The family of this 83-nucleotide sequence from Thioalkalivibrio sulfidiphilus is "c-di-GMP-I-GGC riboswitch aptamer".

RNA sequence: CAGGACAAAGGCAAACCCGUCGAAAGGCGGGGACGCAAAGCCACCGGUCUCACGGAACAUCCAAGACAGCGGGGUUGCCCACC
Numbered sequence: 001c002a003g004g005a006c007a008a009a010g011g012c013a014a015a016c017c018c019g020u021c022g023a024a025a026g027g028c029g030g031g032g033a034c035g036c037a038a039a040g041c042c043a044c045c046g047g048u049c050u051c052a053c054g055g056a057a058c059a060u061c062c063a064a065g066a067c068a069g070c071g072g073g074g075u076u077g078c079c080c081a082c083c
Base pairs, nucleotide, nucleotide: 003080004079011036012035016031017030018029019028020027021026034069039076040075041074042073044072045071046070047067048066049065

It scores 73 bits against the family's covariance model. The base pairs follow the family's consensus structure, which is taken from published work. Its family is annotated with cyclic-di-GMP binding in the Gene Ontology.